The family of this 72-nucleotide RNA from Alligator mississippiensis is "Mammalian CPEB3 ribozyme".
The family's consensus secondary structure is taken from published work.
[Rfam]
RNA sequence: AGAGGUUGAGGCUACAGCAGAAGCGUUUACAGUGUGGCCCUUUCAGAUAUCAAUGAAUCUGCAAAUUCUGCU
Numbered sequence: 001a002g003a004g005g006u007u008g009a010g011g012c013u014a015c016a017g018c019a020g021a022a023g024c025g026u027u028u029a030c031a032g033u034g035u036g037g038c039c040c041u042u043u044c045a046g047a048u049a050u051c052a053a054u055g056a057a058u059c060u061g062c063a064a065a066u067u068c069u070g071c072u
Stems, first nucleotide, its partner, number of pairs: 008040001010039004016072007023035003044061005050055001